Shown here is a 509-nucleotide sequence from Allostreptomyces psammosilenae, a member of the family "Saccharopolyspora sRNA 350".
Taxonomically the source falls in Allostreptomyces (Bacteria, Bacillati, Actinomycetes, Kitasatosporales).
The family's RNA type in Rfam is antisense RNA.
Gene Ontology term of the family: regulation of secondary metabolite biosynthetic process.
The literature on the family includes a 2013 paper in PLoS One by Liu et al., "Prediction and characterization of small non-coding RNAs related to secondary metabolites in Saccharopolyspora erythraea".
It scores 207 bits against the family's covariance model.
RNA sequence: UUGAUGCUGUAGGCCCAGGUGCUGGCCGGCCCGGUGAGCGUCUCGUCGCCGAAGUGUUCGCCGUCGGCGAGGACGCCGAGGACGGUGAGGUCGUCGUACUUUCCGGUGCCGAGUUUGUUGAGUUUUCCGUGGGCGAUGAGGUAGACGCGGUCGGCGCUCUGGCCGGCUUCGACGAUGACGUCGCCUGCGGAGUACUCGUGUUGGGUGAAUCGGUCGGCGAGGGUUUCGAGUACGGCGGUGUCGGUGAAUCCGCGGAGGAUGGGGAGUUCGCCGAGUUCCGGGGGGAUGACGCGUACUUCGCUGCCGGUGUUGGAGAAGGUGAUGCGUCCGUCUCCGACGGUGUAGGUGAGUCGGCGGUUGACCCGGUAGGUUCCGCCGGAGACCUGUACCCAGGGCAGUACGCGCAGCAGCCAGCGCGAGGAGAUGCCCUGCAUCUGCGGGACGGACUUCGUCGUCGUCGACAGAUUGCGUGCCGCCGCCGUGCCCAGGCUCAACUGGGCCCGCCCCUC
Numbered sequence: 001u002u003g004a005u006g007c008u009g010u011a012g013g014c015c016c017a018g019g020u021g022c023u024g025g026c027c028g029g030c031c032c033g034g035u036g037a038g039c040g041u042c043u044c045g046u047c048g049c050c051g052a053a054g055u056g057u058u059c060g061c062c063g064u065c066g067g068c069g070a071g072g073a074c075g076c077c078g079a080g081g082a083c084g085g086u087g088a089g090g091u092c093g094u095c096g097u098a099c100u101u102u103c104c105g106g107u108g109c110c111g112a113g114u115u116u117g118u119u120g121a122g123u124u125u126u127c128c129g130u131g132g133g134c135g136a137u138g139a140g141g142u143a144g145a146c147g148c149g150g151u152c153g154g155c156g157c158u159c160u161g162g163c164c165g166g167c168u169u170c171g172a173c174g175a176u177g178a179c180g181u182c183g184c185c186u187g188c189g190g191a192g193u194a195c196u197c198g199u200g201u202u203g204g205g206u207g208a209a210u211c212g213g214u215c216g217g218c219g220a221g222g223g224u225u226u227c228g229a230g231u232a233c234g235g236c237g238g239u240g241u242c243g244g245u246g247a248a249u250c251c252g253c254g255g256a257g258g259a260u261g262g263g264g265a266g267u268u269c270g271c272c273g274a275g276u277u278c279c280g281g282g283g284g285g286a287u288g289a290c291g292c293g294u295a296c297u298u299c300g301c302u303g304c305c306g307g308u309g310u311u312g313g314a315g316a317a318g319g320u321g322a323u324g325c326g327u328c329c330g331u332c333u334c335c336g337a338c339g340g341u342g343u344a345g346g347u348g349a350g351u352c353g354g355c356g357g358u359u360g361a362c363c364c365g366g367u368a369g370g371u372u373c374c375g376c377c378g379g380a381g382a383c384c385u386g387u388a389c390c391c392a393g394g395g396c397a398g399u400a401c402g403c404g405c406a407g408c409a410g411c412c413a414g415c416g417c418g419a420g421g422a423g424a425u426g427c428c429c430u431g432c433a434u435c436u437g438c439g440g441g442a443c444g445g446a447c448u449u450c451g452u453c454g455u456c457g458u459c460g461a462c463a464g465a466u467u468g469c470g471u472g473c474c475g476c477c478g479c480c481g482u483g484c485c486c487a488g489g490c491u492c493a494a495c496u497g498g499g500c501c502c503g504c505c506c507c508u509c
Stems, first nucleotide, its partner, number of pairs: 006390001008388005015381001018328002021325002023322001025320003030315001035313001037311006045305001047303002050300003054233002057230004063224002065111004075103001078101003082097005118221002123216001126213002129210002131206001134203003138199001140197001143196002154188003159183001160178001166173001234296001240290004245285001249283003254278001256277002262269001329342004351379007360372004391431007399423001401421001403418003407415001437476004442471003446467001448464002452460001478507001480503002484499005